[Rfam]
RNA sequence: UGGACAGAUUAUUAUAUUCGCCUGUAUUCACGGCAUGAUACAAGGGAUUACACUAUUUUUAAAUGGAAAGUGAAUAAAUUAACAUAAUCGACUCCU
Numbered sequence: 001u002g003g004a005c006a007g008a009u010u011a012u013u014a015u016a017u018u019c020g021c022c023u024g025u026a027u028u029c030a031c032g033g034c035a036u037g038a039u040a041c042a043a044g045g046g047a048u049u050a051c052a053c054u055a056u057u058u059u060u061a062a063a064u065g066g067a068a069a070g071u072g073a074a075u076a077a078a079u080u081a082a083c084a085u086a087a088u089c090g091a092c093u094c095c096u
Stems, first nucleotide, its partner, number of pairs: 002095003009090001011088005017082002020080001023077001026075006034065003037059002040056001042054001